[Rfam]
RNA sequence: UUCGAUAAAAGGCAAACUUGCUGAAAGGCAAGGACGCAAAGCCACAGGGUCUAAUGUUCUCACGAACGAUGACAGCCUAGCUGCCGAA
Numbered sequence: 001u002u003c004g005a006u007a008a009a010a011g012g013c014a015a016a017c018u019u020g021c022u023g024a025a026a027g028g029c030a031a032g033g034a035c036g037c038a039a040a041g042c043c044a045c046a047g048g049g050u051c052u053a054a055u056g057u058u059c060u061c062a063c064g065a066a067c068g069a070u071g072a073c074a075g076c077c078u079a080g081c082u083g084c085c086g087a088a
Stems, first nucleotide, its partner, number of pairs: 012037002017032006040082003046078003049073003056067004
RNA: c-di-GMP-I riboswitch aptamer